[Rfam]
RNA: Group II catalytic intron D1-D4-7
Organism: Streptomyces sp. F001
RNA sequence: UCUGGCUUGUGUCAUAGGCCAGUCCCCUGCACUCACGUGCGUCGACAGUAAUGACGGGGUGCGAAGCUGAGUGAACGGAAAGCCUAAGGAUAGCCUCGGCCAUCGGGGAAAUCCGGGGCAGUGGGGGAAGAGUGG
Dot-bracket structure: .((((((.........))))))........((((((((((.(((.((....)).))).)))))....)))))...........((.(((....))).))((((.........((..........)).....))))